A member of the RNA family "Actinobacteria sRNA Ms_IGR-5" from Stackebrandtia nassauensis, 247 nucleotides long. The pairing is the family consensus, mapped onto this sequence. By type it is a small RNA. The literature on the family includes a 2013 paper in RNA by Li et al., "Identification of small RNAs in Mycobacterium smegmatis using heterologous Hfq".
RNA sequence: ACACGUGAAAAGGAGGUGGUCCAAACAGUGAGCGUUAAUUGGACUCGUGAGGUGGUCGCGCGCUAGUCGGCGCGCAACCGAUUCGUACAACGGACGGUCGUGAAGCGCCUCGAUUCCGCCCGGAGGCUUUGCCUCUUGGCGGGGGCGAAUACCACGCGGCCACCGGAGCUCCUGGGUGUCGUACCUAGUCCACUACGACAUGGAUCGCCUUCUUAGCGAGGUGGUCUGCCCCGGGAGCUUCUUGCUG
Numbered sequence: 001a002c003a004c005g006u007g008a009a010a011a012g013g014a015g016g017u018g019g020u021c022c023a024a025a026c027a028g029u030g031a032g033c034g035u036u037a038a039u040u041g042g043a044c045u046c047g048u049g050a051g052g053u054g055g056u057c058g059c060g061c062g063c064u065a066g067u068c069g070g071c072g073c074g075c076a077a078c079c080g081a082u083u084c085g086u087a088c089a090a091c092g093g094a095c096g097g098u099c100g101u102g103a104a105g106c107g108c109c110u111c112g113a114u115u116c117c118g119c120c121c122g123g124a125g126g127c128u129u130u131g132c133c134u135c136u137u138g139g140c141g142g143g144g145g146c147g148a149a150u151a152c153c154a155c156g157c158g159g160c161c162a163c164c165g166g167a168g169c170u171c172c173u174g175g176g177u178g179u180c181g182u183a184c185c186u187a188g189u190c191c192a193c194u195a196c197g198a199c200a201u202g203g204a205u206c207g208c209c210u211u212c213u214u215a216g217c218g219a220g221g222u223g224g225u226c227u228g229c230c231c232c233g234g235g236a237g238c239u240u241c242u243u244g245c246u247g
Stems, first nucleotide, its partner, number of pairs: 016059005061147004067141001165241012178199006